[Rfam]
The family of this 147-nucleotide RNA sequence from Alcanivorax borkumensis is "Group II catalytic intron D1-D4-7". On this family, see Bonen and Vogel, Trends Genet 2001: "The ins and outs of group II introns". Rfam's curators write: Group II introns are found in rRNA, tRNA and mRNA of organelles in fungi, plants and protists, and also in mRNA in bacteria. The organism belongs to Alcanivorax borkumensis, within Bacteria.
RNA sequence: CCUGUUGUUCGACCAACAGUAGCCUAUGGGCAGUGCGUUGCUGGUAACGGCAAGGUGCGAAGCGCCCUGACAAUGUAGUCCCACUCUGUGGUCUGGUUUGCCCGUGAGGGUUGCCGGGGAUUCUGCCAGCAACAGGCGGAUGAGACG
Number, nucleotide and partner (000 for none) at each position: 001c000002c019003u018004g017005u016006u015007g014008u000009u000010c000011g000012a000013c000014c007015a006016a005017c004018a003019g002020u000021a000022g000023c000024c000025u000026a000027u000028g067029g066030g065031c064032a000033g058034u057035g056036c055037g000038u053039u052040g051041c050042u049043g048044g000045u000046a000047a000048c043049g042050g041051c040052a039053a038054g000055g036056u035057g034058c033059g000060a000061a000062g000063c000064g031065c030066c029067c028068u000069g000070a000071c000072a000073a000074u000075g000076u000077a000078g000079u000080c000081c091082c090083a089084c088085u000086c000087u000088g084089u083090g082091g081092u118093c117094u116095g115096g000097u000098u000099u000100g000101c000102c109103c108104g000105u000106g000107a000108g103109g102110g000111u000112u000113g000114c000115c095116g094117g093118g092119g000120a000121u000122u140123c139124u138125g137126c136127c135128a000129g000130c000131a000132a000133c000134a000135g127136g126137c125138g124139g123140a122141u000142g000143a000144g000145a000146c000147g000